A member of the RNA family "c-di-GMP-I riboswitch aptamer" from Paenibacillus sp. Root444D2, 94 nucleotides long. The source organism's lineage runs through Bacteria, Bacilli, Caryophanales, Paenibacillaceae and Paenibacillus.
[Rfam]
Nucleotides: 094
Base pairs, nucleotide, nucleotide: 012037013036017032018031019030020029021028022027041087042086043085047084048083049080050079051078057073058072059071060070061069
Number, partner (000 for none) and nucleotide at each position: 001000u002000c003000u004000c005000g006000a007000c008000a009000a010000a011000g012037g013036c014000a015000a016000a017032g018031c019030u020029g021028g022027u023000g024000a025000a026000a027022g028021c029020c030019a031018g032017u033000g034000a035000c036013g037012c038000a039000a040000a041087g042086c043085u044000a045000a046000a047084g048083g049080g050079g051078c052000u053000u054000c055000c056000u057073u058072g059071u060070c061069c062000u063000g064000c065000a066000a067000c068000c069061g070060g071059a072058c073057a074000c075000g076000c077000a078051g079050c080049c081000a082000g083048c084047c085043a086042g087041c088000c089000g090000c091000c092000g093000a094000a